[Rfam]
RNA sequence: AAAGCAGGCUGCAAUUACAGUGCUUCAUUCCGUGGGAGUACUGCCAUUUUCCUGCUUUCUGAGAGUAACUCUGUUAACGCUGUCUUCGGUUUCACCGAUACGGUGGUGAAACUGUUUGUUCUUAACAUGUACAAGU
Numbered sequence: 001a002a003a004g005c006a007g008g009c010u011g012c013a014a015u016u017a018c019a020g021u022g023c024u025u026c027a028u029u030c031c032g033u034g035g036g037a038g039u040a041c042u043g044c045c046a047u048u049u050u051c052c053u054g055c056u057u058u059c060u061g062a063g064a065g066u067a068a069c070u071c072u073g074u075u076a077a078c079g080c081u082g083u084c085u086u087c088g089g090u091u092u093c094a095c096c097g098a099u100a101c102g103g104u105g106g107u108g109a110a111a112c113u114g115u116u117u118g119u120u121c122u123u124a125a126c127a128u129g130u131a132c133a134a135g136u
Stems, first nucleotide, its partner, number of pairs: 003056006018043009070129001072127006079120001087114011
RNA: Small nucleolar RNA SNORA69